The family of this 149-nucleotide sequence from Virgibacillus salinus is "Ribosomal protein L10 leader". This family is a putative r-protein leader autoregulatory structure found in B. subtilis and other low-GC Gram-positive bacteria. It is located in the 5' untranslated regions of mRNAs encoding ribosomal proteins L10 and L12 (rplJ-rplL). A Rho-independent transcription terminator structure that is probably involved in regulation is included at the 3' end. By type it is a cis-regulatory leader. The match comes from Rfam's covariance-model search (80 bits). Pairs were carried over by alignment from the consensus structure, which was predicted with CMfinder.
RNA sequence: AAAAAUGAAUACGUUGAACCGUAGACAGUAGGUGCGAGCAAUCGCUUAAUUUCCUGCCGAGGUGUUUAAAAGCAGAUUAACUGAUCAUUAUUGAUUAUAAUUUGUCAUAAAAGCCUCCAUGUCUACAUGGAGGCUUUAUUAGUCUCGUU
Numbered sequence: 001a002a003a004a005a006u007g008a009a010u011a012c013g014u015u016g017a018a019c020c021g022u023a024g025a026c027a028g029u030a031g032g033u034g035c036g037a038g039c040a041a042u043c044g045c046u047u048a049a050u051u052u053c054c055u056g057c058c059g060a061g062g063u064g065u066u067u068a069a070a071a072g073c074a075g076a077u078u079a080a081c082u083g084a085u086c087a088u089u090a091u092u093g094a095u096u097a098u099a100a101u102u103u104g105u106c107a108u109a110a111a112a113g114c115c116u117c118c119a120u121g122u123c124u125a126c127a128u129g130g131a132g133g134c135u136u137u138a139u140u141a142g143u144c145u146c147g148u149u
Stems, first nucleotide, its partner, number of pairs: 028057005034045003113134009